RNA: Small nucleolar RNA snR80
RNA sequence: UGACCUUUGCUACACUCUGGCCGUUACCGAUUCAUUACCCCACGGUAUGGGCCUAUUUUAACGCAAAGAAGACGAACCUUCGGACCCCUUACUCACCGCGAUAUCCUUUUACUCAAGUGGAUAUAGCGGUCCAUCUUUACGGUCUACAU
Numbered sequence: 001u002g003a004c005c006u007u008u009g010c011u012a013c014a015c016u017c018u019g020g021c022c023g024u025u026a027c028c029g030a031u032u033c034a035u036u037a038c039c040c041c042a043c044g045g046u047a048u049g050g051g052c053c054u055a056u057u058u059u060a061a062c063g064c065a066a067a068g069a070a071g072a073c074g075a076a077c078c079u080u081c082g083g084a085c086c087c088c089u090u091a092c093u094c095a096c097c098g099c100g101a102u103a104u105c106c107u108u109u110u111a112c113u114c115a116a117g118u119g120g121a122u123a124u125a126g127c128g129g130u131c132c133a134u135c136u137u138u139a140c141g142g143u144c145u146a147c148a149u
Stems, first nucleotide, its partner, number of pairs: 007066003019053004025047004083144004096129004101124006